[Rfam]
RNA sequence: GGGGACGUUCUUGGAUUCGACGGGGAUAGUUCGAGCAUGGGUUGCGGGUAGUGGGGAGCGUCCGCUUCAUCAACGCUAACGCCAAUUAACUGGCAAACAACAACAACAACUCGCUUUCGCAGCUUAAUAACCUGUGAUGCGGCUUCUACCCUGCAUCGCCCAUGUGCCGGGAUAGGGGCUCAACCUUAGUGGGAUACGCUGUCUCAUCUCCGCCUGGGGUGAGCUGAAGAAGACAAUCAGGCUGACCUAGGAAGAAGCCGGUUACGGGGCGUCCUCUUAGGUGACAUCAAAACUGUGACUACACCCGUAGAUGCCUGUGUGGCGUUAUCUUCGGACAGGGGUUCGACUCCCCUCGUCUCCAUUG
Numbered sequence: 001g002g003g004g005a006c007g008u009u010c011u012u013g014g015a016u017u018c019g020a021c022g023g024g025g026a027u028a029g030u031u032c033g034a035g036c037a038u039g040g041g042u043u044g045c046g047g048g049u050a051g052u053g054g055g056g057a058g059c060g061u062c063c064g065c066u067u068c069a070u071c072a073a074c075g076c077u078a079a080c081g082c083c084a085a086u087u088a089a090c091u092g093g094c095a096a097a098c099a100a101c102a103a104c105a106a107c108a109a110c111u112c113g114c115u116u117u118c119g120c121a122g123c124u125u126a127a128u129a130a131c132c133u134g135u136g137a138u139g140c141g142g143c144u145u146c147u148a149c150c151c152u153g154c155a156u157c158g159c160c161c162a163u164g165u166g167c168c169g170g171g172a173u174a175g176g177g178g179c180u181c182a183a184c185c186u187u188a189g190u191g192g193g194a195u196a197c198g199c200u201g202u203c204u205c206a207u208c209u210c211c212g213c214c215u216g217g218g219g220u221g222a223g224c225u226g227a228a229g230a231a232g233a234c235a236a237u238c239a240g241g242c243u244g245a246c247c248u249a250g251g252a253a254g255a256a257g258c259c260g261g262u263u264a265c266g267g268g269g270c271g272u273c274c275u276c277u278u279a280g281g282u283g284a285c286a287u288c289a290a291a292a293c294u295g296u297g298a299c300u301a302c303a304c305c306c307g308u309a310g311a312u313g314c315c316u317g318u319g320u321g322g323c324g325u326u327a328u329c330u331u332c333g334g335a336c337a338g339g340g341g342u343u344c345g346a347c348u349c350c351c352c353u354c355g356u357c358u359c360c361a362u363u364g
Stems, first nucleotide, its partner, number of pairs: 001360007021333010035320008045307005050066005057077005115139001117137006142179006149171003153167004159193005199226001201224002204221001212242005245282008254273001257270003261299004337353005